RNA sequence: UUCCCGGGGAUUGCGAUCUCCCCUUCCAGGCGGCUCGCCCAAGCAUCGCGUCCAGCUUAUUUCGGCCAGGGGCGCCGCAUG
Numbered sequence: 001u002u003c004c005c006g007g008g009g010a011u012u013g014c015g016a017u018c019u020c021c022c023c024u025u026c027c028a029g030g031c032g033g034c035u036c037g038c039c040c041a042a043g044c045a046u047c048g049c050g051u052c053c054a055g056c057u058u059a060u061u062u063c064g065g066c067c068a069g070g071g072g073c074g075c076c077g078c079a080u081g
Stems, first nucleotide, its partner, number of pairs: 006023005048075006
RNA: chrB-a RNA